[Rfam]
RNA sequence: GGGGGGAGGCCAGAUCAGGGCCGUGUCCCCGGCUCCCUGUGCUCCCGGGUCUGCGCUGUUGGAUUCGCGCUCCCGGCCUCGCAGCCCCCU
Numbered sequence: 001g002g003g004g005g006g007a008g009g010c011c012a013g014a015u016c017a018g019g020g021c022c023g024u025g026u027c028c029c030c031g032g033c034u035c036c037c038u039g040u041g042c043u044c045c046c047g048g049g050u051c052u053g054c055g056c057u058g059u060u061g062g063a064u065u066c067g068c069g070c071u072c073c074c075g076g077c078c079u080c081g082c083a084g085c086c087c088c089c090u
Stems, first nucleotide, its partner, number of pairs: 001090006009082002013077001016075001018073003022069004026063002029061001030058004035053001039051001041050003
The family of this 90-nucleotide RNA from Nyctereutes procyonoides is "mir-8799 microRNA precursor family". The family has 7 seed sequences and 20,638 matches in Rfam 15.1. The base pairs follow the family's consensus structure, which was predicted with RNAalifold. Its family is annotated with miRNA-mediated post-transcriptional gene silencing and RISC complex in the Gene Ontology. Its Rfam clan is "mir-8791 microRNA precursor clan".